[Rfam]
RNA sequence: GUACUCCCUGUGUCCCAUAAUAUAAGAACGUUUUUGGCACUACACUAGUGUCAAAAAUGUUCUUAUAUUAUGGGAGAGAGGGAGUAC
Numbered sequence: 001g002u003a004c005u006c007c008c009u010g011u012g013u014c015c016c017a018u019a020a021u022a023u024a025a026g027a028a029c030g031u032u033u034u035u036g037g038c039a040c041u042a043c044a045c046u047a048g049u050g051u052c053a054a055a056a057a058u059g060u061u062c063u064u065a066u067a068u069u070a071u072g073g074g075a076g077a078g079a080g081g082g083a084g085u086a087c
Stems, first nucleotide, its partner, number of pairs: 003085003007081003011077001013075005019069023
RNA: MIR1120/MIR1122 microRNA precursor family